[Rfam]
Annotation: The family of this 55-nucleotide RNA from Amnibacterium flavum is "msiK RNA". The match comes from Rfam's covariance-model search (58 bits). The family's RNA type in Rfam is cis-regulatory element. NCBI's taxonomy places the organism under Bacteria, Bacillati, Actinomycetes, Micrococcales, Amnibacterium.

RNA sequence: GCACUCGUUUCACUACGGAUCGUCCGGCACGUACCUGCCGGUGAAGGAGAAAAGA
Numbered sequence: 001g002c003a004c005u006c007g008u009u010u011c012a013c014u015a016c017g018g019a020u021c022g023u024c025c026g027g028c029a030c031g032u033a034c035c036u037g038c039c040g041g042u043g044a045a046g047g048a049g050a051a052a053a054g055a
Base pairs, nucleotide, nucleotide: 006047008045009044011043012042024041025040026039027038028037029036